[Rfam]
RNA sequence: GUAGAUCCAAAGGAGUGCAAUCUGAGAACACAGGAGCGAGUGCCAAGACCUGUUUGCCACUGCAUCUGUGUUCUCAGGUCACCCCUUUGGGUCACCU
Numbered sequence: 001g002u003a004g005a006u007c008c009a010a011a012g013g014a015g016u017g018c019a020a021u022c023u024g025a026g027a028a029c030a031c032a033g034g035a036g037c038g039a040g041u042g043c044c045a046a047g048a049c050c051u052g053u054u055u056g057c058c059a060c061u062g063c064a065u066c067u068g069u070g071u072u073c074u075c076a077g078g079u080c081a082c083c084c085c086u087u088u089g090g091g092u093c094a095c096c097u
Base pairs, nucleotide, nucleotide: 006091007090010087011086012085013084015082016081017080024075025074026073027072028071029070030069031068032067033066
RNA: MIR398 microRNA precursor family